[Rfam]
RNA sequence: ACAAUCCGACAGGGGAGCGCCCACGGGGCGCUGAGAGUGCGGCACGGCCCGCAGACCCUCGGACCUGAUCCGGGUCAUACCGGCGUAGGGAGUCAGCUCAACCAUGAA
Numbered sequence: 001a002c003a004a005u006c007c008g009a010c011a012g013g014g015g016a017g018c019g020c021c022c023a024c025g026g027g028g029c030g031c032u033g034a035g036a037g038u039g040c041g042g043c044a045c046g047g048c049c050c051g052c053a054g055a056c057c058c059u060c061g062g063a064c065c066u067g068a069u070c071c072g073g074g075u076c077a078u079a080c081c082g083g084c085g086u087a088g089g090g091a092g093u094c095a096g097c098u099c100a101a102c103c104a105u106g107a108a
Stems, first nucleotide, its partner, number of pairs: 006096001008094003011059004017031005038053005064089004070083004